[Rfam]
RNA sequence: GUUCUUUGUUAUUUUCAUUGAUUUCAGGAUAUCGUGAUAUUGAGAAUUCAAUUAUGUAUAGCAAGGAGCCU
Numbered sequence: 001g002u003u004c005u006u007u008g009u010u011a012u013u014u015u016c017a018u019u020g021a022u023u024u025c026a027g028g029a030u031a032u033c034g035u036g037a038u039a040u041u042g043a044g045a046a047u048u049c050a051a052u053u054a055u056g057u058a059u060a061g062c063a064a065g066g067a068g069c070c071u
Base pairs, nucleotide, nucleotide: 001069002068004066005065006064007063008062009061010060011059012058015054017052018051019050020049021048023046024045025044028041029040030039031038032037
MIR8041 microRNA precursor family: a 71-nucleotide RNA from Nicotiana sylvestris.